Annotation: A member of the RNA family "Small nucleolar RNA SNORD115" from Jaculus jaculus, 80 nucleotides long. Rfam links the family to the GO terms RNA processing and nucleolus. The organism belongs to Jaculus, within Eukaryota. For this family Rfam cites "Identification of brain-specific and imprinted small nucleolar RNA genes exhibiting an unusual genomic organization" (Cavaille et al., Proc Natl Acad Sci U S A, 2000). By type it is a C/D-box small nucleolar RNA. The family's consensus secondary structure was predicted with PFOLD.
[Rfam]
RNA sequence: GGGUCACUGAUAAUACCCUUUCUGUCAUGAAGAGUGGUAAUGACAUAAAACUCAUGCUCAAUAGGACUACACAGAGGCCC
Number, nucleotide and partner (000 for none) at each position: 001g080002g079003g078004u077005c074006a000007c000008u071009g070010a000011u000012a000013a000014u000015a000016c000017c000018c000019u000020u000021u000022c000023u000024g000025u000026c000027a000028u000029g000030a000031a000032g000033a000034g000035u000036g000037g000038u000039a000040a000041u000042g000043a000044c000045a000046u000047a000048a000049a000050a000051c000052u000053c000054a000055u000056g000057c000058u000059c000060a000061a000062u000063a000064g000065g000066a000067c000068u000069a000070c009071a008072c000073a000074g005075a000076g000077g004078c003079c002080c001